This 169-nucleotide RNA sequence from Rhodamnia argentea belongs to the Rfam family "MIR168 microRNA precursor family". On this family, see Reinhart et al., Genes Dev 2002: "MicroRNAs in plants".

[Rfam]
RNA sequence: CCACCGGCGGUCUCUAAUUCGCUUGGUGCAGGUCGGGACCUGGUUCCGCCCGCCGCUGAUUCCUUUGAUCCGAUUCAGAGUAUCGCUUCGGUUGCGGCAAGCCCUCUGAUGGCUAGGGGCCGAAUUGGAUCCCGCCUUGCAUCAACUGAAUCGGAGGCCGAGUGUGAAG
Numbered sequence: 001c002c003a004c005c006g007g008c009g010g011u012c013u014c015u016a017a018u019u020c021g022c023u024u025g026g027u028g029c030a031g032g033u034c035g036g037g038a039c040c041u042g043g044u045u046c047c048g049c050c051c052g053c054c055g056c057u058g059a060u061u062c063c064u065u066u067g068a069u070c071c072g073a074u075u076c077a078g079a080g081u082a083u084c085g086c087u088u089c090g091g092u093u094g095c096g097g098c099a100a101g102c103c104c105u106c107u108g109a110u111g112g113c114u115a116g117g118g119g120c121c122g123a124a125u126u127g128g129a130u131c132c133c134g135c136c137u138u139g140c141a142u143c144a145a146c147u148g149a150a151u152c153g154g155a156g157g158c159c160g161a162g163u164g165u166g167a168a169g
Base pairs, nucleotide, nucleotide: 013155014154017151018150019149020148023145024144025143026142027141028140029139030138031137032136034134035133036132037131038130040128041127042126043125044124045123046122